[Rfam]
RNA: Small nucleolar RNA snoR109
RNA sequence: AGUAUAUAACUUUGUUGAACCAAACAGCUGUUUGGCUGUUGCUUAUAAUUCCUACAGCACAGCCAUCUGCUUGCCGAGCUGUUUAAACUC
Numbered sequence: 001a002g003u004a005u006a007u008a009a010c011u012u013u014g015u016u017g018a019a020c021c022a023a024a025c026a027g028c029u030g031u032u033u034g035g036c037u038g039u040u041g042c043u044u045a046u047a048a049u050u051c052c053u054a055c056a057g058c059a060c061a062g063c064c065a066u067c068u069g070c071u072u073g074c075c076g077a078g079c080u081g082u083u084u085a086a087a088c089u090c
Stems, first nucleotide, its partner, number of pairs: 022084008034071003038067001040065002042062002